[Rfam]
RNA: MIR4371 microRNA precursor family
Organism: Glycine max
RNA sequence: CCGUUAAGUAAAGACGUAAUAGACGGAGUGCCACAUCAUCAUGCAUUGUCACAGACACCUCAUUGCCACAUCAUCACCUUCAAUGACGUGGCACUGACAUGUCAGUGAUUGGAUAUGAUGAUGUGACACUCCAUCAGCCACACCAUCACUUAACAGAA
Numbered sequence: 001c002c003g004u005u006a007a008g009u010a011a012a013g014a015c016g017u018a019a020u021a022g023a024c025g026g027a028g029u030g031c032c033a034c035a036u037c038a039u040c041a042u043g044c045a046u047u048g049u050c051a052c053a054g055a056c057a058c059c060u061c062a063u064u065g066c067c068a069c070a071u072c073a074u075c076a077c078c079u080u081c082a083a084u085g086a087c088g089u090g091g092c093a094c095u096g097a098c099a100u101g102u103c104a105g106u107g108a109u110u111g112g113a114u115a116u117g118a119u120g121a122u123g124u125g126a127c128a129c130u131c132c133a134u135c136a137g138c139c140a141c142a143c144c145a146u147c148a149c150u151u152a153a154c155a156g157a158a
Stems, first nucleotide, its partner, number of pairs: 001156001003154007011146001013144001016141002020137001022135002025132006032125012046111001048109005054103004071086004